Plastid-ccsA-ndhD-1 3UTR RNA: a 52-nucleotide RNA from Kingdonia uniflora. The match comes from Rfam's covariance-model search (51 bits). Lineage of the source: Eukaryota > Euphyllophyta > Spermatophyta > Magnoliopsida > Kingdonia. Plastid-ccsA-ndhD-1 is a non-coding RNA (ncRNA) recognised in plastids. It was found in the three prime untranslated region (3UTR) of ccsA and ndhD genes, its 3UTR location suggests a role in transcript maturation. Rfam classes the family as a cis-regulatory element. For this family Rfam cites "Retrograde signaling in plants: A critical review focusing on the GUN pathway and beyond" (Richter et al., Plant Commun, 2023). Its Rfam clan is "Plastid-ccsA_ndhD 3UTR RNA clan".
[Rfam]
RNA sequence: GAGUAUUUGAAAAUCAUUUGAAUCAAGUAACGAUUCAAAUGAUUUUCAAAAA
Numbered sequence: 001g002a003g004u005a006u007u008u009g010a011a012a013a014u015c016a017u018u019u020g021a022a023u024c025a026a027g028u029a030a031c032g033a034u035u036c037a038a039a040u041g042a043u044u045u046u047c048a049a050a051a052a
Stems, first nucleotide, its partner, number of pairs: 007049018